[Rfam]
RNA sequence: CUGCACAGAGAACACCCAGGGGUGUCAGCAUGGCCCCUCCUGGUCUCUUACUUCUGUGCUACAGUAACUCUGAUCUGUACCUCUGCAUUGAGGGAAGUUAUCAUCCCUUCACAUGUAUUCAACAGAUUAGGACACAU
Number, nucleotide and partner (000 for none) at each position: 001c000002u000003g059004c058005a057006c056007a055008g054009a000010g053011a000012a000013c000014a049015c000016c043017c042018a041019g040020g039021g000022g036023u000024g034025u033026c032027a000028g000029c000030a000031u000032g026033g025034c024035c000036c022037c000038u000039c020040c019041u018042g017043g016044u000045c000046u000047c000048u000049u014050a000051c000052u000053u010054c008055u007056g006057u005058g004059c003060u000061a076062c000063a074064g000065u072066a071067a000068c000069u000070c000071u066072g065073a000074u063075c000076u061077g000078u000079a000080c000081c000082u000083c000084u121085g120086c115087a114088u113089u000090g110091a109092g108093g107094g106095a000096a104097g000098u000099u000100a000101u000102c000103a000104u096105c000106c094107c093108u092109u091110c090111a000112c000113a088114u087115g086116u000117a000118u000119u000120c085121a084122a000123c000124a000125g000126a000127u000128u000129a000130g000131g000132a000133c000134a000135c000136a000137u000